[Rfam]
RNA sequence: GCCUUAUACAGAUGUAGUCACGCAAGACAGUGGCGCAUCUCCCUUUAAGGCAGUGUUACCAAUAGAAGCAUAAGCGACAAGUCUGUUUGCGUGGCUUUUUAGUCGAAACCAGGUGAGCCUAUGUGGAACAGGUUAGCCGUAAGACCUUGGGUUGAAAAACCCUAAAAUUGACCUGGAAAUGAUGGGAUUCGGUUUCGCGAUUUUCGUUAUUUCUAGUUACGGUUUU
Numbered sequence: 001g002c003c004u005u006a007u008a009c010a011g012a013u014g015u016a017g018u019c020a021c022g023c024a025a026g027a028c029a030g031u032g033g034c035g036c037a038u039c040u041c042c043c044u045u046u047a048a049g050g051c052a053g054u055g056u057u058a059c060c061a062a063u064a065g066a067a068g069c070a071u072a073a074g075c076g077a078c079a080a081g082u083c084u085g086u087u088u089g090c091g092u093g094g095c096u097u098u099u100u101a102g103u104c105g106a107a108a109c110c111a112g113g114u115g116a117g118c119c120u121a122u123g124u125g126g127a128a129c130a131g132g133u134u135a136g137c138c139g140u141a142a143g144a145c146c147u148u149g150g151g152u153u154g155a156a157a158a159a160c161c162c163u164a165a166a167a168u169u170g171a172c173c174u175g176g177a178a179a180u181g182a183u184g185g186g187a188u189u190c191g192g193u194u195u196c197g198c199g200a201u202u203u204u205c206g207u208u209a210u211u212u213c214u215a216g217u218u219a220c221g222g223u224u225u226u
Base pairs, nucleotide, nucleotide: 001051002050003049004048005047006046008044010040011039012038013037014036015035017034018033019032020031021030022028068124069123070122071121072120074118075117082113083112084111085110087108088107093104094103096101130147131146132145133144134143136223137222138221139220140219141218142168149162150161151160152159153158173216174215175214176213177212178211179210180209181208182207183206184205185204186203187202